[Rfam]
Nucleotides: 095
Base pairs, nucleotide, nucleotide: 002094003093004092005091006090
Number, partner (000 for none) and nucleotide at each position: 001000u002094g003093u004092g005091c006090a007000a008000a009000u010000g011000a012000u013000g014000a015000u016000a017000a018000a019000a020000u021000a022000g023000a024000c025000a026000g027000g028000g029000a030000c031000a032000u033000c034000a035000g036000c037000u038000a039000c040000u041000c042000c043000u044000u045000u046000u047000u048000u049000a050000g051000g052000g053000a054000g055000g056000a057000u058000g059000a060000u061000g062000a063000c064000u065000a066000a067000g068000u069000c070000u071000a072000a073000a074000a075000u076000g077000g078000g079000a080000a081000u082000c083000u084000c085000u086000c087000u088000g089000a090006u091005g092004c093003a094002u095000u
Rfam assigns this 95-nucleotide RNA sequence from Populus trichocarpa to the family "Small nucleolar RNA R44/J54/Z268 family". Gene Ontology terms of the family: nucleolus and RNA processing. The organism belongs to Populus, within Eukaryota. It is annotated as a C/D-box small nucleolar RNA.